[Rfam]
RNA sequence: ACAGGUCGCGGAAGACGCAGCGAGGGCGUUCCGCGGCGAACAGGACAGAUUCGUGCCACGGGAAGAACGCGGCACUUCAGGGCGUU
Numbered sequence: 001a002c003a004g005g006u007c008g009c010g011g012a013a014g015a016c017g018c019a020g021c022g023a024g025g026g027c028g029u030u031c032c033g034c035g036g037c038g039a040a041c042a043g044g045a046c047a048g049a050u051u052c053g054u055g056c057c058a059c060g061g062g063a064a065g066a067a068c069g070c071g072g073c074a075c076u077u078c079a080g081g082g083c084g085u086u
Base pairs, nucleotide, nucleotide: 005037006036007035008034009033010032011031012030013029017027018026053075054074055073056072057071059069060068